Bacterial large subunit ribosomal RNA: a 557-nucleotide part of an RNA from Barnesiella sp. WM24. It scores 2753 bits against the family's covariance model. NCBI's taxonomy places the organism under Bacteria, Bacteroidota, Bacteroidia, Bacteroidales, Barnesiella.
[Rfam]
Nucleotides: 557
Base pairs, nucleotide, nucleotide: 007552008551009550010549011548012547013546014545015544016543022537023501024500027472028471029469030468031467032466033465034464035463036461037460038160039159046107047106048105049062050061051060068101069100070099071098072097073096074095077089078088079087112121113120114119122139123138124137125136126135127134128133141157142156143155144154145153146152164195165193166192167191168190169189175182176181205212206211215457216243217242218241219240220239226234227233246454247453248452249451254277255276256275257274258273259272260271284396285395286394289390290389291388292387293386304380305379306378307377308376309375312372313371314370315369317365318364319363323338324337325336327334341345347359348358349357402426403425404424405423406422407421408420409419433448434447435446436445437444488495489494511523512522513521514520
Number, partner (000 for none) and nucleotide at each position: 001000a002000g003000a004000c005000a006000a007552g008551g009550g010549c011548a012547c013546a014545u015544g016543a017000a018000g019000g020000a021000u022537g023501c024500c025000u026000u027472g028471g029469c030468u031467c032466u033465c034464g035463g036461a037460g038160g039159c040000g041000a042000a043000g044000a045000a046107g047106g048105a049062c050061g051060u052000g053000a054000u055000a056000a057000g058000c059000u060051g061050c062049g063000a064000u065000a066000a067000g068101c069100c070099g071098c072097g073096g074095u075000c076000a077089g078088g079087g080000g081000c082000a083000a084000a085000u086000a087079c088078c089077c090000g091000u092000u093000u094000a095074g096073c097072c098071g099070c100069g101068g102000a103000u104000u105048u106047c107046c108000g109000a110000a111000u112121g113120g114119g115000g116000c117000a118000a119114c120113c121112c122139g123138c124137c125136g126135g127134a128133g129000g130000c131000g132000a133128c134127u135126c136125c137124g138123g139122c140000a141157c142156u143155c144154c145153a146152g147000c148000a149000a150000g151000a152146c153145u154144g155143g156142a157141g158000g159039g160038c161000g162000a163000a164195c165193c166192c167191g168190g169189g170000g171000a172000a173000c174000u175182g176181a177000a178000a179000c180000a181176u182175c183000u184000c185000a186000u187000u188000a189169c190168c191167c192166g193165g194000a195164g196000g197000a198000a199000g200000a201000g202000a203000a204000a205212a206211u207000a208000a209000c210000a211206a212205u213000g214000a215457u216243u217242c218241c219240g220239c221000a222000a223000g224000u225000a226234g227233u228000g229000g230000c231000g232000a233227g234226c235000g236000a237000a238000c239220g240219c241218g242217g243216a244000a245000g246454a247453g248452c249451c250000c251000a252000a253000a254277c255276c256275g257274g258273g259272g260271c261000c262000g263000u264000c265000a266000c267000g268000g269000c270000g271260g272259u273258u274257c275256c276255g277254g278000g279000g280000u281000u282000g283000u284396a285395g286394g287000g288000c289390c290389g291388g292387u293386c294000g295000a296000c297000a298000a299000a300000g301000c302000g303000a304380u305379a306378u307377g308376g309375c310000a311000a312372g313371g314370a315369u316000a317365g318364c319363g320000g321000a322000a323338c324337g325336c326000u327334c328000u329000g330000g331000a332000a333000a334327g335000u336325g337324c338323g339000g340000c341345c342000g343000c344000a345341g346000c347359g348358g349357g350000u351000g352000a353000c354000a355000g356000c357349c358348c359347c360000g361000u362000a363319c364318g365317c366000g367000a368000a369315a370314u371313c372312u373000c374000a375309g376308c377307c378306a379305u380304g381000g382000g383000c384000g385000a386293g387292a388291c389290c390289g391000g392000u393000a394286c395285c396284u397000g398000a399000g400000u401000a402426g403425c404424g405423c406422g407421g408420g409419a410000c411000a412000c413000g414000a415000g416000a417000a418000a419409u420408c421407c422406u423405g424404u425403g426402u427000g428000a429000a430000c431000c432000a433448g434447c435446g436445g437444g438000g439000a440000c441000c442000a443000u444437c445436c446435c447434g448433u449000a450000a451249g452248g453247c454246u455000a456000a457215a458000u459000a460037c461036u462000a463035c464034c465033g466032a467031g468030a469029g470000a471028c472027c473000g474000a475000u476000a477000g478000u479000g480000g481000a482000c483000c484000a485000g486000u487000a488495c489494c490000g491000u492000g493000a494489g495488g496000g497000a498000a499000a500024g501023g502000u503000g504000a505000a506000a507000a508000g509000a510000a511523c512522c513521c514520c515000g516000a517000a518000c519000a520514g521513g522512g523511g524000a525000g526000u527000g528000a529000a530000a531000c532000a533000g534000a535000c536000c537022c538000u539000g540000a541000a542000a543016u544015c545014a546013u547012g548011u549010g550009c551008c552007u553000a554000c555000a556000a557000g

Pairs were carried over by alignment from the consensus structure, which is taken from published work.